[Rfam]
RNA sequence: GAGUGUAUCUCCAUGGCAAGCCUAACCCGUAUACCGGGGCAGGCAGAGCGAAAGCGACAUGGCCGCAGUCUUCAUUCGAAGACCAGGGCCGCCGUGUUCAAGCGCGGGGAGUCGUGGGGAUACAACCCGAAACCGAGUGAUCUACGCAGGGACAGGGUGAAGCGUACCGAAAGGCACGUGGAAGCCCGCUAGUGUUGGUGUCUUACAAUACCCUCACGUGAUCUCUGUGUAGGGGUGAAAGGCCCAUCGAACUCGGCAACAGCUGGUU
Numbered sequence: 001g002a003g004u005g006u007a008u009c010u011c012c013a014u015g016g017c018a019a020g021c022c023u024a025a026c027c028c029g030u031a032u033a034c035c036g037g038g039g040c041a042g043g044c045a046g047a048g049c050g051a052a053a054g055c056g057a058c059a060u061g062g063c064c065g066c067a068g069u070c071u072u073c074a075u076u077c078g079a080a081g082a083c084c085a086g087g088g089c090c091g092c093c094g095u096g097u098u099c100a101a102g103c104g105c106g107g108g109g110a111g112u113c114g115u116g117g118g119g120a121u122a123c124a125a126c127c128c129g130a131a132a133c134c135g136a137g138u139g140a141u142c143u144a145c146g147c148a149g150g151g152a153c154a155g156g157g158u159g160a161a162g163c164g165u166a167c168c169g170a171a172a173g174g175c176a177c178g179u180g181g182a183a184g185c186c187c188g189c190u191a192g193u194g195u196u197g198g199u200g201u202c203u204u205a206c207a208a209u210a211c212c213c214u215c216a217c218g219u220g221a222u223c224u225c226u227g228u229g230u231a232g233g234g235g236u237g238a239a240a241g242g243c244c245c246a247u248c249g250a251a252c253u254c255g256g257c258a259a260c261a262g263c264u265g266g267u268u
Base pairs, nucleotide, nucleotide: 005123006122007121008120009119010118011117012116013115014114015113016112017111020044021043022042023041026038027037028036029035048055049054061090062089063088064087068083069082070081071080072079073078093106094105095104096103126266127265129263133256134255135254136253137252138251142232143231144230145229146228147227148226149225150224151223152222153220155187156186157185158184162179163178164177165176167174168173192217193216194215197213198212200211201210234244235243236242

The family of this 268-nucleotide part of an RNA from Halonotius sp. J07HN4 is "Archaeal large subunit ribosomal RNA".
Rfam links the family to the GO terms structural constituent of ribosome and ribosome.
On this family, see Yusupov et al., Science 2001: "Crystal structure of the ribosome at 5.5 A resolution".